This 85-nucleotide RNA from Enterobacillus tribolii belongs to the Rfam family "RpsF leader". A search with the family's covariance model found it, with a score of 91 bits. By type it is a cis-regulatory leader. Taxonomically the source falls in Enterobacillus (Bacteria, Pseudomonadota, Enterobacterales, Hafniaceae). Rfam's curators write: Conserved and widely distributed to many bacterial species RNA structure. It precedes operon containing rpsF, which encodes ribosomal protein S6. The motif also precedes operon containing rpsR, which encodes ribosomal protein S18. The RNA was shown to interact with S6:S18 protein dimer in vitro. It was shown that RpsF leader regulates gene expression in response to the S6:S18 complex, contributing to the regulation of ribosomal protein levels. On this family, see Fu et al., RNA 2014: "Bacterial RNA motif in the 5' UTR of rpsF interacts with an S6:S18 complex".
RNA sequence: GCCGCACACAAAUAACGUUCCUUGCCUUCGUGGGCUGCGGCUGACCCCGACAGAAGGCUGAAUAAUCCGUAAGGAGCAACCGAUG
Numbered sequence: 001g002c003c004g005c006a007c008a009c010a011a012a013u014a015a016c017g018u019u020c021c022u023u024g025c026c027u028u029c030g031u032g033g034g035c036u037g038c039g040g041c042u043g044a045c046c047c048c049g050a051c052a053g054a055a056g057g058c059u060g061a062a063u064a065a066u067c068c069g070u071a072a073g074g075a076g077c078a079a080c081c082g083a084u085g
Base pairs, nucleotide, nucleotide: 017077018076019075020074021073022072023071024058025057026056027055028054029053032047033046034045